[Rfam]
RNA sequence: GGAGGCGGCUGGGUGCUGGUGUGCCUGCUGGACUUCAAAUCCAGGUGUUCUUCGAAAGGGGAACGGUAGGUUCGAUUCCUACACGCCUCC
Number, nucleotide and partner (000 for none) at each position: 001g090002g089003a088004g087005g086006c085007g084008g082009c000010u000011g026012g025013g024014u023015g022016c021017u000018g000019g000020u000021g016022u015023g014024c013025c012026u011027g000028c044029u043030g042031g041032a040033c000034u000035u000036c000037a000038a000039a000040u032041c031042c030043a029044g028045g000046u000047g064048u063049u062050c061051u060052u000053c000054g000055a000056a000057a000058g000059g000060g051061g050062a049063a048064c047065g000066g000067u081068a080069g079070g078071u000072u000073c000074g000075a000076u000077u000078c070079c069080u068081a067082c008083a000084c007085g006086c005087c004088u003089c002090c001
RNA: Selenocysteine transfer RNA